[Rfam]
RNA sequence: CGUUGUCUCCGACAAUAGCCAAUGUCCCGGCAAUCUGAGAGGGACGCCUUCGGGUGAUUGCCAGCCAAAAUCGUCAUGACCUGAGAGACGAUGCCUUCGGGCGGUAACCUUGCUUAACCUUUGAGGGCAGGGAUCGCAAUGGCGAUAAAGGUAUAC
Numbered sequence: 001c002g003u004u005g006u007c008u009c010c011g012a013c014a015a016u017a018g019c020c021a022a023u024g025u026c027c028c029g030g031c032a033a034u035c036u037g038a039g040a041g042g043g044a045c046g047c048c049u050u051c052g053g054g055u056g057a058u059u060g061c062c063a064g065c066c067a068a069a070a071u072c073g074u075c076a077u078g079a080c081c082u083g084a085g086a087g088a089c090g091a092u093g094c095c096u097u098c099g100g101g102c103g104g105u106a107a108c109c110u111u112g113c114u115u116a117a118c119c120u121u122u123g124a125g126g127g128c129a130g131g132g133a134u135c136g137c138a139a140u141g142g143c144g145a146u147a148a149a150g151g152u153a154u155a156c
Stems, first nucleotide, its partner, number of pairs: 002016006024045005030061006046055003070092005079105003093102003109131005117152005133146005